RNA sequence: GACUAGUCUGAAGGUAGUGAGUUCUCAACUGACAGUUCAGUCAGUUGCAGAUUGAAUGCCUUUUUCCACUCUUUCCUCCCUUCUCAUUACUGCACUUGACUGGUCUUUA
Numbered sequence: 001g002a003c004u005a006g007u008c009u010g011a012a013g014g015u016a017g018u019g020a021g022u023u024c025u026c027a028a029c030u031g032a033c034a035g036u037u038c039a040g041u042c043a044g045u046u047g048c049a050g051a052u053u054g055a056a057u058g059c060c061u062u063u064u065u066c067c068a069c070u071c072u073u074u075c076c077u078c079c080c081u082u083c084u085c086a087u088u089a090c091u092g093c094a095c096u097u098g099a100c101u102g103g104u105c106u107u108u109a
Stems, first nucleotide, its partner, number of pairs: 001105008010097002014093002016088006040070001044066001

Source information
Rfam assigns this 109-nucleotide RNA sequence from Propithecus coquereli to the family "Y RNA". Taxonomically the source falls in Propithecus (Eukaryota, Craniata, Sarcopterygii, Eutheria). The family's RNA type in Rfam is non-coding RNA gene. Pairs were carried over by alignment from the consensus structure, which is taken from published work. It scores 64 bits against the family's covariance model.